Metazoan signal recognition particle RNA: a 293-nucleotide sequence from Arctia plantaginis.
Its Rfam clan is "SRP clan".
Rfam links the family to the GO terms signal recognition particle, endoplasmic reticulum targeting and SRP-dependent cotranslational protein targeting to membrane, signal sequence recognition.

[Rfam]
RNA sequence: GACGUAGAGCGUUGCACCUUAUGUAAUCCGAAUAGAUGUCGGGACCGGAGGAUGAUUUGAGGUCGGGAUUUCUGGUGCUGGGUGGCCCAUGUUGACUGGACGUCCACACUAAGCCCGGUAUUAAUAUGGAUCCCAUGGAGGAGUCCGGGGGAUGCAGGUUAACUAAGGACAGGCGAACCAGGCCAGGGGGGAAACCCAGCAGCCAAAAGUCUCCGUAUUGGGCAGUAGUGGGAUAGCGGCCGGGAGUGAGUGCACAGUAACAACCUGAACAAUAAAAUCAGAUGCGUUGCUUU
Numbered sequence: 001g002a003c004g005u006a007g008a009g010c011g012u013u014g015c016a017c018c019u020u021a022u023g024u025a026a027u028c029c030g031a032a033u034a035g036a037u038g039u040c041g042g043g044a045c046c047g048g049a050g051g052a053u054g055a056u057u058u059g060a061g062g063u064c065g066g067g068a069u070u071u072c073u074g075g076u077g078c079u080g081g082g083u084g085g086c087c088c089a090u091g092u093u094g095a096c097u098g099g100a101c102g103u104c105c106a107c108a109c110u111a112a113g114c115c116c117g118g119u120a121u122u123a124a125u126a127u128g129g130a131u132c133c134c135a136u137g138g139a140g141g142a143g144u145c146c147g148g149g150g151g152a153u154g155c156a157g158g159u160u161a162a163c164u165a166a167g168g169a170c171a172g173g174c175g176a177a178c179c180a181g182g183c184c185a186g187g188g189g190g191g192a193a194a195c196c197c198a199g200c201a202g203c204c205a206a207a208a209g210u211c212u213c214c215g216u217a218u219u220g221g222g223c224a225g226u227a228g229u230g231g232g233a234u235a236g237c238g239g240c241c242g243g244g245a246g247u248g249a250g251u252g253c254a255c256a257g258u259a260a261c262a263a264c265c266u267g268a269a270c271a272a273u274a275a276a277a278u279c280a281g282a283u284g285c286g287u288u289g290c291u292u293u
Stems, first nucleotide, its partner, number of pairs: 001040003004022004009017001011015001029035001041291002044288001046286002049283001053280006061270001063268005073262002076259005082253003086250001088248003092244001096243004101238003104232002107230005113223009122161004127156002130153005136147004163167001171212004181204003188197003